The record is a 279-nucleotide part of an RNA from Colletotrichum tanaceti, which matches "Eukaryotic large subunit ribosomal RNA" in Rfam. The organism belongs to Colletotrichum destructivum species complex, within Eukaryota. Gene Ontology terms of the family: structural constituent of ribosome and ribosome.
[Rfam]
Nucleotides: 279
Stems, first nucleotide, its partner, number of pairs: 005135013020044003027037003048055002063085005070077002087118002089115003092111002098105002138277001145267006154243011165231001167199004174191007203228004208224002211222002245255002
Number, partner (000 for none) and nucleotide at each position: 001000g002000a003000g004000u005135u006134a007133a008132c009131c010130u011129u012128a013127u014126g015125u016124g017123u018000a019000a020044g021043u022042g023000u024000u025000u026000a027037g028036g029035u030000g031000u032000u033000a034000a035029a036028c037027c038000c039000c040000u041000a042022u043021a044020c045000g046000u047000a048055a049054u050000g051000a052000a053000a054049g055048u056000g057000a058000a059000c060000g061000c062000a063085g064084g065083u066082a067081a068000g069000a070077g071076c072000u073000u074000u075000a076071g077070c078000g079000u080000a081067u082066u083065a084064u085063u086000a087118a088117c089115u090114a091113a092111u093110c094000c095000u096000g097000a098105u099104g100000u101000u102000c103000u104099u105098a106000g107000a108000u109000a110093g111092a112000u113091u114090u115089a116000a117088g118087u119000a120000a121000g122000a123017g124016u125015a126014u127013a128012u129011a130010g131009g132008g133007u134006u135005a136000g137000a138277c139000c140000u141000a142000a143000a144000a145267g146266a147265a148264g149263g150262u151000a152000a153000a154243c155242u156241a157240u158239g159238c160237g161236u162235g163234u164233g165231u166000a167199g168198g169197g170196u171000a172000a173000a174191g175190c176189u177188a178187g179186a180185g181000g182000a183000a184000a185180c186179u187178c188177u189176a190175g191174u192000a193000g194000a195000g196170g197169c198168u199167u200000g201000c202000a203228g204227c205226g206225g207000u208224u209223c210000u211222g212221a213000c214000g215000u216000g217000c218000a219000a220000a221212u222211c223209g224208a225206u226205c227204g228203u229000u230000a231165a232000a233164c234163a235162u236161a237160c238159g239158c240157a241156u242155g243154g244000g245255g246254g247000c248000g249000a250000a251000a252000g253000a254246c255245u256000a257000a258000u259000u260000a261000a262150a263149c264148c265147u266146u267145c268000u269000a270000g271000u272000a273000g274000c275000u276000a277138g278000u279000u